[Rfam]
RNA sequence: AUGGACCCUAAUGCAGCUGCUGGCCACUGCACAAGAUUAGACAUAAGACUCUUGUGCGUGUGACAGCGGCUAUGAUGGGGUUUCCACGAAACAAC
Numbered sequence: 001a002u003g004g005a006c007c008c009u010a011a012u013g014c015a016g017c018u019g020c021u022g023g024c025c026a027c028u029g030c031a032c033a034a035g036a037u038u039a040g041a042c043a044u045a046a047g048a049c050u051c052u053u054g055u056g057c058g059u060g061u062g063a064c065a066g067c068g069g070c071u072a073u074g075a076u077g078g079g080g081u082u083u084c085c086a087c088g089a090a091a092c093a094a095c
Base pairs, nucleotide, nucleotide: 005081006080007079008078009077010076012074015071016070017069018068019067020066021065022064024062025060026059028058029057030056031055032054033053035051036050

A member of the RNA family "mir-210 microRNA precursor family" from Apis mellifera, 95 nucleotides long. Pairs were carried over by alignment from the consensus structure, which was predicted with WAR. A reference for the family is Cai et al. (2005), "Kaposi's sarcoma-associated herpesvirus expresses an array of viral microRNAs in latently infected cells", Proc Natl Acad Sci U S A. NCBI's taxonomy places the organism under Eukaryota, Opisthokonta, Hexapoda, Apoidea, Apis.